[Rfam]
Nucleotides: 387
Base pairs, nucleotide, nucleotide: 064254065253066252067251068250070248075186076185077184078183079182080181085177086176087175088174089173187234188233193229194228195227196226201222203221204220205219206218207217208216238370240369241368242367243366244365256356257355258354259353260352261351263349264348377385379383
Number, partner (000 for none) and nucleotide at each position: 001000a002000a003000g004000c005000c006000u007000a008000g009000u010000u011000a012000a013000c014000c015000c016000u017000u018000a019000c020000u021000g022000c023000u024000u025000c026000c027000c028000u029000g030000g031000a032000a033000g034000u035000a036000a037000a038000c039000a040000g041000g042000c043000c044000u045000g046000c047000u048000g049000u050000g051000g052000u053000a054000a055000g056000g057000u058000u059000g060000g061000c062000g063000a064254g065253a066252c067251c068250g069000u070248c071000a072000a073000a074000u075186u076185g077184c078183g079182g080181g081000g082000a083000a084000g085177c086176u087175u088174c089173a090000u091000a092000a093000c094000c095000a096000c097000u098000g099000a100000u101000u102000a103000c104000c105000g106000c107000u108000a109000g110000c111000c112000a113000g114000u115000c116000c117000g118000a119000a120000a121000g122000g123000u124000u125000g126000g127000u128000u129000a130000a131000g132000c133000a134000c135000c136000c137000g138000g139000g140000u141000a142000a143000c144000g145000c146000c147000c148000a149000g150000g151000g152000g153000u154000a155000u156000g157000g158000u159000c160000a161000u162000a163000a164000u165000g166000u167000u168000a169000g170000u171000g172000g173089u174088g175087a176086a177085g178000u179000u180000a181080u182079c183078c184077g185076c186075a187234g188233c189000u190000a191000a192000g193229c194228u195227c196226c197000u198000g199000c200000g201222g202000g203221g204220c205219g206218g207217u208216a209000a210000a211000u212000c213000u214000u215000u216208u217207a218206u219205u220204g221203c222201c223000u224000a225000c226196g227195g228194a229193g230000a231000a232000a233188g234187u235000u236000c237000a238370g239000a240369g241368a242367c243366u244365a245000g246000a247000c248070g249000g250068c251067g252066g253065u254064c255000g256356g257355u258354c259353c260352c261351a262000a263349u264348a265000g266000a267000a268000c269000a270000u271000u272000u273000g274000g275000a276000a277000a278000g279000g280000a281000g282000u283000u284000u285000u286000a287000u288000a289000a290000a291000u292000u293000u294000a295000a296000g297000c298000a299000g300000c301000c302000a303000g304000a305000g306000g307000g308000u309000u310000a311000g312000g313000u314000u315000g316000u317000g318000a319000c320000a321000g322000u323000u324000u325000a326000g327000u328000u329000u330000u331000c332000u333000u334000u335000c336000c337000u338000a339000c340000c341000g342000g343000u344000u345000c346000c347000a348264u349263a350000a351261u352260g353259g354258g355257g356256c357000u358000u359000a360000a361000g362000g363000u364000a365244u366243a367242g368241u369240c370238c371000g372000c373000u374000u375000a376000c377385u378000a379383c380000a381000u382000u383379g384000c385377a386000c387000g
This 387-nucleotide RNA from Domatiomyces globalis belongs to the Rfam family "Group I catalytic intron". The organism belongs to Domatiomyces, within Eukaryota. A reference for the family is Cech (1990), "Self-splicing of group I introns", Annu Rev Biochem.